[Rfam]
RNA sequence: GAAGACUUGGCUCUGUACAAUUCAAACCGAUGAAACAUUGUGCAGAGC
Numbered sequence: 001g002a003a004g005a006c007u008u009g010g011c012u013c014u015g016u017a018c019a020a021u022u023c024a025a026a027c028c029g030a031u032g033a034a035a036c037a038u039u040g041u042g043c044a045g046a047g048c
Stems, first nucleotide, its partner, number of pairs: 011047005017041003
RNA: uup RNA